[Rfam]
Shown here is a 73-nucleotide part of an RNA from Chiloscyllium punctatum, a member of the family "Eukaryotic large subunit ribosomal RNA". The match comes from Rfam's covariance-model search (1664 bits). Lineage of the source: Eukaryota > Craniata > Elasmobranchii > Orectolobiformes > Chiloscyllium.
RNA sequence: UGCCCAGUGCUCUGAGUGACAGUGAAGAAAUUCAAUGAAGCGUGGGUAAAUGGCAGGAGUAACUAUGACUCUC
Numbered sequence: 001u002g003c004c005c006a007g008u009g010c011u012c013u014g015a016g017u018g019a020c021a022g023u024g025a026a027g028a029a030a031u032u033c034a035a036u037g038a039a040g041c042g043u044g045g046g047u048a049a050a051u052g053g054c055a056g057g058a059g060u061a062a063c064u065a066u067g068a069c070u071c072u073c
Stems, first nucleotide, its partner, number of pairs: 002054003007051002009047004014043001017042002023034004056072005